[Rfam]
RNA sequence: ACUGGAAAGAGUAGCGCCUUUCUGUAAGCAGAGUUGCAGUCUUUAAGAGGAUGAAUUCAUCUGUUGGUGGAACAAUGGUGUAUUCAGUGCUUCGUCGAAGUCAGUGUCUUCCAGAGUCUGGUGUCAACAUUCGAGCCUGGACGUAGGUCUAGGCUGGGAGGUUGUUCAAUACUGGGGAACCGCCCGAGGCUAGCAAUAGAGCAGGGAAAACCUAGAGCACUGGCACGGCUGUAAGAUAGCACGAUGGAGAAGUUACUUGGAUACACUACCACUACGGGUGGGAACUACCCUUUUGCUU
Number, nucleotide and partner (000 for none) at each position: 001a040002c039003u038004g023005g022006a021007a020008a019009g018010a000011g000012u000013a000014g000015c000016g000017c000018c009019u008020u007021u006022c005023u004024g000025u000026a000027a000028g037029c036030a035031g000032a000033g000034u000035u030036g029037c028038a003039g002040u001041c000042u000043u000044u295045a294046a293047g292048a291049g290050g289051a000052u287053g000054a286055a000056u284057u283058c282059a000060u280061c277062u276063g275064u274065u000066g273067g272068u271069g270070g269071a000072a000073c000074a000075a000076u268077g267078g266079u265080g264081u263082a262083u261084u260085c259086a258087g257088u000089g253090c252091u251092u250093c249094g000095u247096c000097g000098a000099a000100g245101u244102c243103a000104g242105u241106g240107u239108c235109u234110u233111c000112c231113a230114g229115a000116g226117u225118c223119u222120g221121g220122u219123g218124u217125c164126a163127a162128c161129a000130u159131u158132c157133g000134a155135g154136c153137c152138u151139g150140g149141a148142c147143g000144u000145a000146g000147g142148u141149c140150u139151a138152g137153g136154c135155u134156g000157g132158g131159a130160g000161g128162u127163u126164g125165u171166u000167c000168a000169a000170u000171a165172c215173u214174g213175g212176g211177g000178a000179a000180c000181c000182g000183c206184c205185c204186g000187a000188g000189g000190c199191u198192a197193g000194c000195a000196a000197u192198a191199g190200a000201g000202c000203a000204g185205g184206g183207a000208a000209a000210a000211c176212c175213u174214a173215g172216a000217g124218c123219a122220c121221u120222g119223g118224c000225a117226c116227g000228g000229c114230u113231g112232u000233a110234a109235g108236a000237u000238a000239g107240c106241a105242c104243g102244a101245u100246g000247g095248a000249g093250a092251a091252g090253u089254u000255a000256c000257u087258u086259g085260g084261a083262u082263a081264c080265a079266c078267u077268a076269c070270c069271a068272c067273u066274a064275c063276g062277g061278g000279u000280g060281g000282g058283a057284a056285c000286u054287a052288c000289c050290c049291u048292u047293u046294u045295g044296c000297u000298u000